[Rfam]
RNA sequence: CUUGACCGAGCCGAGCCACAGCGGCGCCCCGGUCCGCCCCUGCCCGUACGUGGCGAGCAGCGCCUGCGCCUC
Dot-bracket structure: ..............(((.....)))..(.(....((...((..(((....)))..))...))...).)....
Numbered sequence: 001c002u003u004g005a006c007c008g009a010g011c012c013g014a015g016c017c018a019c020a021g022c023g024g025c026g027c028c029c030c031g032g033u034c035c036g037c038c039c040c041u042g043c044c045c046g047u048a049c050g051u052g053g054c055g056a057g058c059a060g061c062g063c064c065u066g067c068g069c070c071u072c
Stems, first nucleotide, its partner, number of pairs: 015025003028068001030066001035062002040057002044053003